A member of the RNA family "U4 spliceosomal RNA" from Aotus nancymaae, 141 nucleotides long. It is annotated as a spliceosomal small nuclear RNA.
[Rfam]
RNA sequence: AGCUUUGUACAGUGGCAGUAUCAUAGCCAAUGAGGUUUAUCCAAGGUGCAAUUAUUGCUAAUUGAAAACUUUUCCCCAUACCCUGCCAUGACAACUUGAAAUAUAGUUGGCAUUGGCAAUUCUUGACAGUCUCUUCGGAGA
Numbered sequence: 001a002g003c004u005u006u007g008u009a010c011a012g013u014g015g016c017a018g019u020a021u022c023a024u025a026g027c028c029a030a031u032g033a034g035g036u037u038u039a040u041c042c043a044a045g046g047u048g049c050a051a052u053u054a055u056u057g058c059u060a061a062u063u064g065a066a067a068a069c070u071u072u073u074c075c076c077c078a079u080a081c082c083c084u085g086c087c088a089u090g091a092c093a094a095c096u097u098g099a100a101a102u103a104u105a106g107u108u109g110g111c112a113u114u115g116g117c118a119a120u121u122c123u124u125g126a127c128a129g130u131c132u133c134u135u136c137g138g139a140g141a
Stems, first nucleotide, its partner, number of pairs: 020052002024048001026047003034042002085117003088113003092109005130141004
Overview:
It scores 102 bits against the family's covariance model.